[Rfam]
RNA: Lysine riboswitch aptamer
Organism: Diplocloster agilis
RNA sequence: GAGUUAGAUAGAGGUUGCGUUUUUCAUGAGUACAUUACCGGAUUGUGGUCAGGCACGUAAGAAGGUAUGGAAAGGGACGAACGCCGAAGGGACAGAUUUCCUGAUAAUUUGUUGCCUGGGCAUAUAAUUAAGAGUUAUAUGACUGUCAUCGUAAAAGAUGGGGCGCUAUCCAAAGA
Numbered sequence: 001g002a003g004u005u006a007g008a009u010a011g012a013g014g015u016u017g018c019g020u021u022u023u024u025c026a027u028g029a030g031u032a033c034a035u036u037a038c039c040g041g042a043u044u045g046u047g048g049u050c051a052g053g054c055a056c057g058u059a060a061g062a063a064g065g066u067a068u069g070g071a072a073a074g075g076g077a078c079g080a081a082c083g084c085c086g087a088a089g090g091g092a093c094a095g096a097u098u099u100c101c102u103g104a105u106a107a108u109u110u111g112u113u114g115c116c117u118g119g120g121c122a123u124a125u126a127a128u129u130a131a132g133a134g135u136u137a138u139a140u141g142a143c144u145g146u147c148a149u150c151g152u153a154a155a156a157g158a159u160g161g162g163g164c165g166c167u168a169u170c171c172a173a174a175g176a
Stems, first nucleotide, its partner, number of pairs: 007170005017084006024077002033069002036067004088117003091113008118144002121141008146161005